The family of this 85-nucleotide RNA sequence from Neodiprion lecontei is "mir-277 microRNA precursor family". The family's consensus secondary structure was predicted with RNAalifold. On this family, see Liu et al., BMC Genomics 2010: "MicroRNAs of Bombyx mori identified by Solexa sequencing".

[Rfam]
RNA sequence: UGGCGGUCGGGGCUCGUGCCAGAUGCGCGUUUACACGGGCCCUGAUUACUGUAAAUGCACUAUCUGGUACGACACCUCGCCUGUC
Numbered sequence: 001u002g003g004c005g006g007u008c009g010g011g012g013c014u015c016g017u018g019c020c021a022g023a024u025g026c027g028c029g030u031u032u033a034c035a036c037g038g039g040c041c042c043u044g045a046u047u048a049c050u051g052u053a054a055a056u057g058c059a060c061u062a063u064c065u066g067g068u069a070c071g072a073c074a075c076c077u078c079g080c081c082u083g084u085c
Stems, first nucleotide, its partner, number of pairs: 008079004015071009025060001027058009